[Rfam]
RNA sequence: UUCGCUCCUGAUUGUCCAAACGCAAUUCUUGUGCAGAAAAAAACACGCAAACCAAGAAUUGUGUCUGGACAUCGGUGGCUAA
Numbered sequence: 001u002u003c004g005c006u007c008c009u010g011a012u013u014g015u016c017c018a019a020a021c022g023c024a025a026u027u028c029u030u031g032u033g034c035a036g037a038a039a040a041a042a043a044c045a046c047g048c049a050a051a052c053c054a055a056g057a058a059u060u061g062u063g064u065c066u067g068g069a070c071a072u073c074g075g076u077g078g079c080u081a082a
Base pairs, nucleotide, nucleotide: 002081004079005078006077009074010073011072012071014070015069016068017067018066021063022062023061024060025059026058027057028056029055030054031053
A member of the RNA family "mir-219 microRNA precursor family" from Thamnophis sirtalis, 82 nucleotides long. On this family, see Lai et al., Genome Biol 2003: "Computational identification of Drosophila microRNA genes". Taxonomically the source falls in Thamnophis (Eukaryota, Metazoa, Teleostomi, Amniota). Rfam links the family to the GO terms miRNA-mediated post-transcriptional gene silencing and RISC complex.